[Rfam]
RNA sequence: AUGGUCCGGCCCGUGGACGCCCUGAACAUCGGGACGCGGACCCGGCUACCCUGGCCGCGUGCGCCCCUGCCGGGGAAGGCCCGUGACGCCUCCCCGCGCAGCCGCAAAGCCGACAGCCGUCGCAUCUGAGGGAGCCCCUUACAUG
Numbered sequence: 001a002u003g004g005u006c007c008g009g010c011c012c013g014u015g016g017a018c019g020c021c022c023u024g025a026a027c028a029u030c031g032g033g034a035c036g037c038g039g040a041c042c043c044g045g046c047u048a049c050c051c052u053g054g055c056c057g058c059g060u061g062c063g064c065c066c067c068u069g070c071c072g073g074g075g076a077a078g079g080c081c082c083g084u085g086a087c088g089c090c091u092c093c094c095c096g097c098g099c100a101g102c103c104g105c106a107a108a109g110c111c112g113a114c115a116g117c118c119g120u121c122g123c124a125u126c127u128g129a130g131g132g133a134g135c136c137c138c139u140u141a142c143a144u145g
Stems, first nucleotide, its partner, number of pairs: 060106004067101004109123002112121003